mir-17 microRNA precursor family: an 80-nucleotide RNA sequence from Synaphobranchus kaupii.
This family represents the microRNA (miRNA) precursor mir-17, family, which includes mir-20, mir-91, and mir-103. miRNAs are transcribed as ~70nt precursors (modelled here) and subsequently processed by the Dicer enzyme to give a ~22nt product. In this case the mature sequence comes from the 3' arm of the precursor.
Taxonomically the source falls in Synaphobranchus (Eukaryota, Opisthokonta, Eumetazoa, Elopomorpha).
It scores 59 bits against the family's covariance model.
Gene Ontology terms of the family: RISC complex and miRNA-mediated post-transcriptional gene silencing.
For this family Rfam cites "Structural Features Within Precursor microRNA-20a Regulate Dicer-TRBP Processing" (Liu et al., J Mol Biol, 2025).

[Rfam]
RNA sequence: UCUGCGAGUCCAAAGUGCUGUUUGUGCAGGUAGCAUGCUUAUGGGUCCUACUGCAGAAGCAGCACUUCAUGACGCACAGA
Dot-bracket structure: ...(.(..((..(((((((((((.(((.(((((..............)))))))).)))))))))))...))..).)...